[Rfam]
RNA sequence: GGUUAAUACCCAGUUACAAAGGUACGCUGGAGUUCUGACCUUUCGAAAGGAAGCGUUAGACAUAUCAAACUUUUGGAACCGCUUUGCCGGGGAUCCGGCGGAGCAAA
Dot-bracket structure: .......(((..(((((....))).)).))..)..(((((((((....))))).))))........................(.(.(((.(....)..))).).)..
Numbered sequence: 001g002g003u004u005a006a007u008a009c010c011c012a013g014u015u016a017c018a019a020a021g022g023u024a025c026g027c028u029g030g031a032g033u034u035c036u037g038a039c040c041u042u043u044c045g046a047a048a049g050g051a052a053g054c055g056u057u058a059g060a061c062a063u064a065u066c067a068a069a070c071u072u073u074u075g076g077a078a079c080c081g082c083u084u085u086g087c088c089g090g091g092g093a094u095c096c097g098g099c100g101g102a103g104c105a106a107a
Stems, first nucleotide, its partner, number of pairs: 008033001009030002013027002015024003036058004040053005083105001085103001087101003091096001

This 107-nucleotide RNA belongs to the Rfam family "SL2 RNA".
A search with the family's covariance model found it, with a score of 82 bits.
Rfam classes the family as a non-coding RNA gene.
This family represents SL2 RNA. SL2 RNA is involved in trans splicing in lower eukaryotes. Trans-splicing is a form of RNA processing. The acquisition of a spliced leader from a SL RNA is a intra-molecular reaction which precisely joins exons derived from separately transcribed RNAs. Approximately 25% of C. elegans genes are organised into polycistronic transcription units and the presence of SL2 on an mRNA is an indication the the gene is in an operon.
For this family Rfam cites "trans splicing of polycistronic Caenorhabditis elegans pre-mRNAs: analysis of the SL2 RNA" (Evans and Blumenthal, Mol Cell Biol, 2000).
The family has 30 seed sequences and 598 matches in Rfam 15.1.
Its Rfam clan is "SL clan".